The record is a 122-nucleotide RNA sequence from Sanguibacteroides justesenii, which matches "FMN riboswitch aptamer (RFN element)" in Rfam. Taxonomically the source falls in Sanguibacteroides (Bacteria, Bacteroidota, Bacteroidia, Bacteroidales). For this family Rfam cites "A conserved RNA structure element involved in the regulation of bacterial riboflavin synthesis genes" (Gelfand et al., Trends Genet, 1999). Pairs were carried over by alignment from the consensus structure, which is taken from published work. Rfam's curators write: The RFN element is a highly conserved domain that is found frequently in the 5'-untranslated regions of prokaryotic mRNAs that encode for flavin mononucleotide (FMN) biosynthesis and transport proteins. Gene Ontology term of the family: FMN binding.
RNA sequence: AUGUUUCUUCGGGGCAGGGUGCAAUCCCCUACCGGCGGUAAUAGUCCGCGACUCUCCUUUAGGAGACUGAUUUGGUGCGAUUCCAAAACCGACGGUUAAAGUCCGGAUGAUAGAAGAAAUGU
Number, nucleotide and partner (000 for none) at each position: 001a000002u000003g120004u119005u118006u117007c116008u115009u114010c113011g000012g000013g000014g000015c000016a000017g029018g028019g027020u000021g000022c000023a000024a000025u000026c000027c019028c018029c017030u000031a102032c101033c091034g090035g049036c048037g047038g046039u000040a000041a000042u000043a000044g089045u088046c038047c037048g036049c035050g000051a000052c000053u066054c065055u000056c000057c000058u000059u000060u000061a000062g000063g000064a000065g054066a053067c000068u000069g000070a000071u087072u086073u085074g084075g083076u000077g000078c000079g000080a000081u000082u000083c075084c074085a073086a072087a071088a045089c044090c034091g033092a000093c105094g104095g103096u000097u000098a000099a000100a000101g032102u031103c095104c094105g093106g000107a000108u000109g000110a000111u000112a000113g010114a009115a008116g007117a006118a005119a004120u003121g000122u000